[Rfam]
RNA sequence: GUUGGAAUUGCGCGGAUAGUAAUUGACGAAGGCAUAGCCACGGGCCUGGUCGAUGGCGUGGAACAGCGGGUUCCAGUCGAACAUCGCCAGCAUGUAGCCCGGCAGCGUGUUGGCGACGAACAUCUUGCCCGAAGCGAUCAUGUUGGCGCGCUG
Numbered sequence: 001g002u003u004g005g006a007a008u009u010g011c012g013c014g015g016a017u018a019g020u021a022a023u024u025g026a027c028g029a030a031g032g033c034a035u036a037g038c039c040a041c042g043g044g045c046c047u048g049g050u051c052g053a054u055g056g057c058g059u060g061g062a063a064c065a066g067c068g069g070g071u072u073c074c075a076g077u078c079g080a081a082c083a084u085c086g087c088c089a090g091c092a093u094g095u096a097g098c099c100c101g102g103c104a105g106c107g108u109g110u111u112g113g114c115g116a117c118g119a120a121c122a123u124c125u126u127g128c129c130c131g132a133a134g135c136g137a138u139c140a141u142g143u144u145g146g147c148g149c150g151c152u153g
Stems, first nucleotide, its partner, number of pairs: 003034002008030002013025003037057004041052003064153005070082004086147009098134001100131003103127003107123002110119003
Dot-bracket structure: ..((...((...(((.......)))...))..))..(((((((......))).))))......(((((.((((.....))))...(((((((((...(.((((((.((.(((....)))..)).))).)))..)....))))))))).)))))

A member of the RNA family "Ruegeria cis2 sRNA" from Marinovum algicola, 153 nucleotides long.
NCBI's taxonomy places the organism under Bacteria, Pseudomonadota, Alphaproteobacteria, Rhodobacterales, Marinovum.
The family's consensus secondary structure was predicted with RNAfold.
Rfam classes the family as a small RNA.